[Rfam]
RNA: XIST RNA A repeat
RNA sequence: UGGUCCAUCGGGACCUCGGAUACCUGGGUUUAGGCUUUUU
Numbered sequence: 001u002g003g004u005c006c007a008u009c010g011g012g013a014c015c016u017c018g019g020a021u022a023c024c025u026g027g028g029u030u031u032a033g034g035c036u037u038u039u040u
Stems, first nucleotide, its partner, number of pairs: 003014004017026003
Dot-bracket structure: ..((((....))))..(((....)))..............